RNA sequence: UGACGGGGGCCCGCACAAGCGGUGGAGCAUGUGGUUUAAUUCGACGCAACGCGAAGAACCUUACCUGGGUUUGACAUCCUGUGAAUAUCCCGUAAUUGGGAUAGUGCCUUCGGGAGCACAGAGACAGGUGCUGCAUGGCUGUCGUCAGCUCGUGUCGUGAGAUGUUUGGUUAAGUCCAGCAACGAGCGCAACCCUUAUCGUUAGUUGCCAGCAUUUAAAGAUGGGAACUCUAACGAGACUGCCCGGGUCAACCGGGAGGAAGGUGGGGAUGACGUCAAGUCCUCAUGGCCCUUAUAUCCAGGGCUACACACGUGCUACAAUGGUAGGUACAAAGGGCAGCGACUCCGCAAGGGGAAGCCAAUCCCAAAAGCCUAUCUCAGUCCGGAUUGGGGUCUGCAACUCGACCCCAUGAAGUUGGAAUCGCUAGUAAUCGCGGAUCAGCAUGCCGCGGUGAAUAUGUUCCCGGGCCUUGUACACACCGCCCGUCACACCAUGGGAGUUGAUUAUACCCGACGUCGCUGGGCUAACUUUUAGAGGCAGGCGCCUAAGGUAUGGUCGAUAACUGGGGUGAAGUCGUAACAAGG
Numbered sequence: 001u002g003a004c005g006g007g008g009g010c011c012c013g014c015a016c017a018a019g020c021g022g023u024g025g026a027g028c029a030u031g032u033g034g035u036u037u038a039a040u041u042c043g044a045c046g047c048a049a050c051g052c053g054a055a056g057a058a059c060c061u062u063a064c065c066u067g068g069g070u071u072u073g074a075c076a077u078c079c080u081g082u083g084a085a086u087a088u089c090c091c092g093u094a095a096u097u098g099g100g101a102u103a104g105u106g107c108c109u110u111c112g113g114g115a116g117c118a119c120a121g122a123g124a125c126a127g128g129u130g131c132u133g134c135a136u137g138g139c140u141g142u143c144g145u146c147a148g149c150u151c152g153u154g155u156c157g158u159g160a161g162a163u164g165u166u167u168g169g170u171u172a173a174g175u176c177c178a179g180c181a182a183c184g185a186g187c188g189c190a191a192c193c194c195u196u197a198u199c200g201u202u203a204g205u206u207g208c209c210a211g212c213a214u215u216u217a218a219a220g221a222u223g224g225g226a227a228c229u230c231u232a233a234c235g236a237g238a239c240u241g242c243c244c245g246g247g248u249c250a251a252c253c254g255g256g257a258g259g260a261a262g263g264u265g266g267g268g269a270u271g272a273c274g275u276c277a278a279g280u281c282c283u284c285a286u287g288g289c290c291c292u293u294a295u296a297u298c299c300a301g302g303g304c305u306a307c308a309c310a311c312g313u314g315c316u317a318c319a320a321u322g323g324u325a326g327g328u329a330c331a332a333a334g335g336g337c338a339g340c341g342a343c344u345c346c347g348c349a350a351g352g353g354g355a356a357g358c359c360a361a362u363c364c365c366a367a368a369a370g371c372c373u374a375u376c377u378c379a380g381u382c383c384g385g386a387u388u389g390g391g392g393u394c395u396g397c398a399a400c401u402c403g404a405c406c407c408c409a410u411g412a413a414g415u416u417g418g419a420a421u422c423g424c425u426a427g428u429a430a431u432c433g434c435g436g437a438u439c440a441g442c443a444u445g446c447c448g449c450g451g452u453g454a455a456u457a458u459g460u461u462c463c464c465g466g467g468c469c470u471u472g473u474a475c476a477c478a479c480c481g482c483c484c485g486u487c488a489c490a491c492c493a494u495g496g497g498a499g500u501u502g503a504u505u506a507u508a509c510c511c512g513a514c515g516u517c518g519c520u521g522g523g524c525u526a527a528c529u530u531u532u533a534g535a536g537g538c539a540g541g542c543g544c545c546u547a548a549g550g551u552a553u554g555g556u557c558g559a560u561a562a563c564u565g566g567g568g569u570g571a572a573g574u575c576g577u578a579a580c581a582a583g584g
Stems, first nucleotide, its partner, number of pairs: 001476002003473003007470007015460002019424005024318001026316008034307002040055004064302007077124002079121005086103007105116001107114002127291002130289004136285002138280003141276001143274002148187006154163003166179004193268004198236007208225002212223003239259002242256005322376007334365003339358002344353003383414001388409007430452007479583001481580001484576002489570004494565003499560012515545001517543004523538003528534002
Dot-bracket structure: (((((.(((((((.((..((((((.((((((((((....((((........))))........(((((((......(((((((..(((((((....))))))).(.((....)).)))))).))..((.((((..((((((.((...(((((((((....)))..((((......))))..)))))).....((((.(((((((...((..(((......)))))....)))))))..((.(((((.....))))).)).....))))....)).).)))...))))))))....)))))))...)).)))))))).)...(((((((.....(((..((...(((....)))...))....)))....)))))))......(....(((((((........)))))))....).....))))).....(((((((.........)))))))......))...)))))))))).))..(.(..((...((((.(((..((((((((((((....(.((((..(((..((...)).))).)))).)...))))))))))))..))).))))....))...)..).

The record is a 584-nucleotide part of an RNA from Desulfobacter postgatei, which matches "Bacterial small subunit ribosomal RNA" in Rfam. It scores 1609 bits against the family's covariance model. Lineage of the source: Bacteria > Thermodesulfobacteriota > Desulfobacteria > Desulfobacterales > Desulfobacter postgatei. Clan: SSU clan.